Rfam assigns this 103-nucleotide RNA from Alteribacillus bidgolensis to the family "Purine riboswitch aptamer".
It scores 79 bits against the family's covariance model.
Pairs were carried over by alignment from the consensus structure, which is taken from published work.
[Rfam]
RNA sequence: ACGGAUGAACGAAAUAAACCUCAUAUAAUGUCAAGAAUAAGGCUCGACAAGUUUCUACCCGGCGACCGUAAAUUGCCGGACUAUGAGGGAAAGGUAUGCAAGC
Number, nucleotide and partner (000 for none) at each position: 001a000002c000003g000004g000005a000006u000007g000008a000009a000010c000011g000012a000013a000014a000015u000016a000017a000018a000019c088020c087021u086022c085023a084024u083025a082026u000027a000028a000029u049030g048031u047032c046033a000034a044035g043036a000037a000038u000039a000040a000041g000042g000043c035044u034045c000046g032047a031048c030049a029050a000051g000052u000053u000054u000055c000056u000057a000058c000059c079060c078061g077062g076063c075064g074065a073066c000067c000068g000069u000070a000071a000072a000073u065074u064075g063076c062077c061078g060079g059080a000081c000082u025083a024084u023085g022086a021087g020088g019089g000090a000091a000092a000093g000094g000095u000096a000097u000098g000099c000100a000101a000102g000103c000